RNA sequence: AACGUGCUCCGGGGUCGGUGAGAGUCCGAACCGGCGGUGAUAGUCCGCGAACUGCUGAGGCCACGCGAGUGGCCCGGCGGUUGAGCUGGUGGAACUCCAGCACCGACGGUUAAAGUCCGGAUGGGAGGAAGCACGCG
Numbered sequence: 001a002a003c004g005u006g007c008u009c010c011g012g013g014g015u016c017g018g019u020g021a022g023a024g025u026c027c028g029a030a031c032c033g034g035c036g037g038u039g040a041u042a043g044u045c046c047g048c049g050a051a052c053u054g055c056u057g058a059g060g061c062c063a064c065g066c067g068a069g070u071g072g073c074c075c076g077g078c079g080g081u082u083g084a085g086c087u088g089g090u091g092g093a094a095c096u097c098c099a100g101c102a103c104c105g106a107c108g109g110u111u112a113a114a115g116u117c118c119g120g121a122u123g124g125g126a127g128g129a130a131g132c133a134c135g136c137g
Stems, first nucleotide, its partner, number of pairs: 003135006009128002016028003030116002032105002034048004043103002051081007085101005107119003
RNA: FMN riboswitch aptamer (RFN element)